[Rfam]
Source information
Rfam assigns this 402-nucleotide RNA from Stieleria bergensis to the family "Bacterial RNase P class A". From the family's description: Ribonuclease P (RNase P) is a ubiquitous endoribonuclease, found in archaea, bacteria and eukarya as well as chloroplasts and mitochondria. By type it is a ribozyme.
RNA sequence: GCAGAAGGCGAGGCAAUCGCUGGUUGGCGGUGGUGCUUUGGCAUCAGUUGUCGACUGGAGGAAAGUCCGGGCUCCGCAGGACAGGAUGGUCGAUAACGUCGACCGGCCGCGAGGUUAGGGAAAGUGCAGCAGAAAGCAAACCGCCGAACGAUUCACUUCGGUGGAUGCGUGGCAAGGGUGAAACGGUGUGGUAAGAGCACACCAGCGGCUAAGGUGACUUAGUCGGCUUGGUAAACCCCAUCCGGAGCUAGACCAAACAGGGUGCAGAAGUUGUCCGCUUCGCAAUGACACUCGGGUAGGUCGCGAUUGAGGCGACGAGCAAUCGUCGUGCACAGAUAAAUGGUUGCCAUCGAAGUGCUUGUCAUUUCGAGACAGAACCCGGCUUACAAGCCUUCUGCUGUU
Numbered sequence: 001g002c003a004g005a006a007g008g009c010g011a012g013g014c015a016a017u018c019g020c021u022g023g024u025u026g027g028c029g030g031u032g033g034u035g036c037u038u039u040g041g042c043a044u045c046a047g048u049u050g051u052c053g054a055c056u057g058g059a060g061g062a063a064a065g066u067c068c069g070g071g072c073u074c075c076g077c078a079g080g081a082c083a084g085g086a087u088g089g090u091c092g093a094u095a096a097c098g099u100c101g102a103c104c105g106g107c108c109g110c111g112a113g114g115u116u117a118g119g120g121a122a123a124g125u126g127c128a129g130c131a132g133a134a135a136g137c138a139a140a141c142c143g144c145c146g147a148a149c150g151a152u153u154c155a156c157u158u159c160g161g162u163g164g165a166u167g168c169g170u171g172g173c174a175a176g177g178g179u180g181a182a183a184c185g186g187u188g189u190g191g192u193a194a195g196a197g198c199a200c201a202c203c204a205g206c207g208g209c210u211a212a213g214g215u216g217a218c219u220u221a222g223u224c225g226g227c228u229u230g231g232u233a234a235a236c237c238c239c240a241u242c243c244g245g246a247g248c249u250a251g252a253c254c255a256a257a258c259a260g261g262g263u264g265c266a267g268a269a270g271u272u273g274u275c276c277g278c279u280u281c282g283c284a285a286u287g288a289c290a291c292u293c294g295g296g297u298a299g300g301u302c303g304c305g306a307u308u309g310a311g312g313c314g315a316c317g318a319g320c321a322a323u324c325g326u327c328g329u330g331c332a333c334a335g336a337u338a339a340a341u342g343g344u345u346g347c348c349a350u351c352g353a354a355g356u357g358c359u360u361g362u363c364a365u366u367u368c369g370a371g372a373c374a375g376a377a378c379c380c381g382g383c384u385u386a387c388a389a390g391c392c393u394u395c396u397g398c399u400g401u402u
Stems, first nucleotide, its partner, number of pairs: 001398009012348007020058012063385003067382005072247004079280002082277001084243005089103005104118001105116004119238002124236002126232002141177002143173003148170003185203006205227001206225008251302004260293005271285004311331001312329007